The family of this 73-nucleotide sequence from Gemmobacter lanyuensis is "Singlet oxygen resistance RNA X". A search with the family's covariance model found it, with a score of 81 bits. From the family's description: SorX (RSs2461)like SorY is a singlet oxygen induced sRNA that counteracts oxidative stress by targeting mRNA for a transporter in Rhodobacter. Rfam links the family to the GO term response to photooxidative stress. Pairs were carried over by alignment from the consensus structure.
RNA sequence: CCCCUCGCCACAUCGGGGUCAUGAUGUGGCUCCUCCCUGUUGGACUGGCCGGGCCUCGUGCCCGGCCUUUUUU
Numbered sequence: 001c002c003c004c005u006c007g008c009c010a011c012a013u014c015g016g017g018g019u020c021a022u023g024a025u026g027u028g029g030c031u032c033c034u035c036c037c038u039g040u041u042g043g044a045c046u047g048g049c050c051g052g053g054c055c056u057c058g059u060g061c062c063c064g065g066c067c068u069u070u071u072u073u
Stems, first nucleotide, its partner, number of pairs: 008029007047067008